[Rfam]
RNA sequence: UGGGUAGUAUCUAUUCCGGAACUAUACCAUACAAGAAUUGCAAAACAAAAAUAGAUUCUGCCUUGAUCCGAAUCGGACGGGGACAGAGGG
Dot-bracket structure: ((((((((.((.......))))))).)))............................((((((((.(((.....)))))))).)))....